[Rfam]
This 331-nucleotide RNA from Ceratobasidium sp. AG-Ba belongs to the Rfam family "Group I catalytic intron". A search with the family's covariance model found it, with a score of 110 bits.
RNA sequence: UUAGUGUGCUACUCGGUGGUUAAGAGGCGUCCGAAAGGAUUAGCCUAGUGAGCGUUGAGGCUUGCGACACUAUCAAAUUGCGGGGACAUCCUAAAGCUCUUGUGACCAAGCAUCUGUGGAAACGCAGGUGUGGCCGAGUUAAUUGCCCUGGGUAUGGUAAAACUACAAGAGAUGUUACAAUGGACAAUCCGCAGCCAAGUCCUAAGGGCCAUUUUAAAAGUGGUCUAUGGAUGCAGUUCACAGACUAAAUGGUAGUGGGUGUGCAUGAGUUGAUUUAAUUAUUUGACUCUGCAUGCUUAAGAUAUAGUCGAUCCUGCCGCGAAAGCGGACC
Numbered sequence: 001u002u003a004g005u006g007u008g009c010u011a012c013u014c015g016g017u018g019g020u021u022a023a024g025a026g027g028c029g030u031c032c033g034a035a036a037g038g039a040u041u042a043g044c045c046u047a048g049u050g051a052g053c054g055u056u057g058a059g060g061c062u063u064g065c066g067a068c069a070c071u072a073u074c075a076a077a078u079u080g081c082g083g084g085g086a087c088a089u090c091c092u093a094a095a096g097c098u099c100u101u102g103u104g105a106c107c108a109a110g111c112a113u114c115u116g117u118g119g120a121a122a123c124g125c126a127g128g129u130g131u132g133g134c135c136g137a138g139u140u141a142a143u144u145g146c147c148c149u150g151g152g153u154a155u156g157g158u159a160a161a162a163c164u165a166c167a168a169g170a171g172a173u174g175u176u177a178c179a180a181u182g183g184a185c186a187a188u189c190c191g192c193a194g195c196c197a198a199g200u201c202c203u204a205a206g207g208g209c210c211a212u213u214u215u216a217a218a219a220g221u222g223g224u225c226u227a228u229g230g231a232u233g234c235a236g237u238u239c240a241c242a243g244a245c246u247a248a249a250u251g252g253u254a255g256u257g258g259g260u261g262u263g264c265a266u267g268a269g270u271u272g273a274u275u276u277a278a279u280u281a282u283u284u285g286a287c288u289c290u291g292c293a294u295g296c297u298u299a300a301g302a303u304a305u306a307g308u309c310g311a312u313c314c315u316g317c318c319g320c321g322a323a324a325g326c327g328g329a330c331c
Base pairs, nucleotide, nucleotide: 068257069256070255071254072253074251075250079193080192081191082190083189084188089184090183091182194237195236199232200231201230202229207225208224209223210222211221241310243309244308245307246306247305259296260295261294262293263292264291265290267288317328318327319326320325